A member of the RNA family "Mammalian CPEB3 ribozyme" from Crocodylus porosus, 76 nucleotides long. NCBI's taxonomy places the organism under Eukaryota, Deuterostomia, Sauropsida, Archelosauria, Crocodylus.

RNA sequence: UUUGCAAGUUUGAGGCCAUAGCAAAAGUGCUCGCAGCACAGCCUAGUCAGAUUUCAACAAAUGUGCAUAUUCUGCU
Numbered sequence: 001u002u003u004g005c006a007a008g009u010u011u012g013a014g015g016c017c018a019u020a021g022c023a024a025a026a027g028u029g030c031u032c033g034c035a036g037c038a039c040a041g042c043c044u045a046g047u048c049a050g051a052u053u054u055c056a057a058c059a060a061a062u063g064u065g066c067a068u069a070u071u072c073u074g075c076u
Stems, first nucleotide, its partner, number of pairs: 014043003020076004025071002027039003048065002051062004